The family of this 218-nucleotide RNA sequence from Bacillus sp. BS-02 is "Bacillus sRNA ncr1575". Rfam's curators put it in the seed alignment. The family's consensus secondary structure is taken from published work. Taxonomically the source falls in Bacillus (Bacteria, Bacillati, Bacillota, Bacilli).
[Rfam]
RNA sequence: UCUUCAAAUAUGAAUGGACUACUGGGUGGAAGAUAAUUAACUAAUCUGUAUUCUUCUAAUUUGAAAUGAAUAAGUUUCAAAGUACUAAGAUAUAGGAUUAGUCAUCCAUUUUUUUUAAAUCAGUUUAACUAGAUGUUUUGUUUGUCGAAUGACAAAAAACUCUUAUUUAGUAUAAAUGAAUAGAUAAUCCUUCCAAUAAUAAUUGGGAGGAUUUUUUA
Numbered sequence: 001u002c003u004u005c006a007a008a009u010a011u012g013a014a015u016g017g018a019c020u021a022c023u024g025g026g027u028g029g030a031a032g033a034u035a036a037u038u039a040a041c042u043a044a045u046c047u048g049u050a051u052u053c054u055u056c057u058a059a060u061u062u063g064a065a066a067u068g069a070a071u072a073a074g075u076u077u078c079a080a081a082g083u084a085c086u087a088a089g090a091u092a093u094a095g096g097a098u099u100a101g102u103c104a105u106c107c108a109u110u111u112u113u114u115u116u117a118a119a120u121c122a123g124u125u126u127a128a129c130u131a132g133a134u135g136u137u138u139u140g141u142u143u144g145u146c147g148a149a150u151g152a153c154a155a156a157a158a159a160c161u162c163u164u165a166u167u168u169a170g171u172a173u174a175a176a177u178g179a180a181u182a183g184a185u186a187a188u189c190c191u192u193c194c195a196a197u198a199a200u201a202a203u204u205g206g207g208a209g210g211a212u213u214u215u216u217u218a
Stems, first nucleotide, its partner, number of pairs: 016114003023108004029103002042100006049094003052090004060081008122166001124165001135160005141154001186213011
Dot-bracket structure: ...............(((....((((..((...........((((((.(((((((....((((((((......)))))))).....)))).))))))))).)).))))...))).......(.(..........(((((.(............).)))))....))...................(((((((((((......))))))))))).....